This 138-nucleotide RNA from Esox lucius belongs to the Rfam family "Small nucleolar RNA U109". Lineage of the source: Eukaryota > Actinopteri > Euteleosteomorpha > Esocidae > Esox. Rfam links the family to the GO terms RNA processing and nucleolus.

[Rfam]
RNA sequence: CAGCAUGGCUGUUUCAACUACUUCCUCUACUGUGAGGAAUAUGGACAAUUCAGUCAUGCAACAGCAAACCAGCAGAGUUAACAGGGCCACCAGUCUCUUAAGAUCAGACUGAGUAGGUAGUAUAAUACUCUGACAAUU
Numbered sequence: 001c002a003g004c005a006u007g008g009c010u011g012u013u014u015c016a017a018c019u020a021c022u023u024c025c026u027c028u029a030c031u032g033u034g035a036g037g038a039a040u041a042u043g044g045a046c047a048a049u050u051c052a053g054u055c056a057u058g059c060a061a062c063a064g065c066a067a068a069c070c071a072g073c074a075g076a077g078u079u080a081a082c083a084g085g086g087c088c089a090c091c092a093g094u095c096u097c098u099u100a101a102g103a104u105c106a107g108a109c110u111g112a113g114u115a116g117g118u119a120g121u122a123u124a125a126u127a128c129u130c131u132g133a134c135a136a137u138u
Base pairs, nucleotide, nucleotide: 003059004058005057006056007055008054022039023038024037025036026035027034074131075130076129077128086118087117090113091111092110093109094108095107096106